[Rfam]
RNA sequence: AUUUCUAAAUCGCUGAAACCGAUAGGUACGGGGGAACCAUUUUCGUGGAUUUCAAUGUGAAUCCAAGGGGUGAAUCCUUUAUUGGUAGGGCUACUCAAUGGUCCGAAUCCGACAGCUAACCUCGUAAGCGUUAUAUGAGAAGGAAG
Number, nucleotide and partner (000 for none) at each position: 001a000002u000003u000004u000005c000006u000007a000008a000009a000010u000011c130012g129013c128014u127015g000016a000017a000018a027019c026020c025021g000022a000023u000024a000025g020026g019027u018028a125029c124030g123031g122032g121033g120034g000035a000036a000037c000038c067039a000040u000041u000042u000043u000044c000045g000046u000047g000048g000049a000050u000051u000052u000053c000054a000055a000056u000057g000058u000059g000060a000061a000062u000063c000064c000065a000066a000067g038068g110069g109070g108071u000072g000073a000074a000075u000076c085077c084078u000079u000080u000081a000082u000083u000084g077085g076086u000087a000088g104089g103090g102091c101092u000093a000094c000095u000096c000097a000098a000099u000100g000101g091102u090103c089104c088105g000106a000107a000108u070109c069110c068111g000112a000113c000114a000115g000116c000117u000118a000119a000120c033121c032122u031123c030124g029125u028126a000127a014128g013129c012130g011131u000132u000133a000134u000135a000136u000137g000138a000139g000140a000141a000142g000143g000144a000145a000146g000
A member of the RNA family "c-di-AMP riboswitch aptamer (ydaO/yuaA leader)" from Bacillus yapensis, 146 nucleotides long. The organism belongs to Bacillus, within Bacteria. A search with the family's covariance model found it, with a score of 93 bits.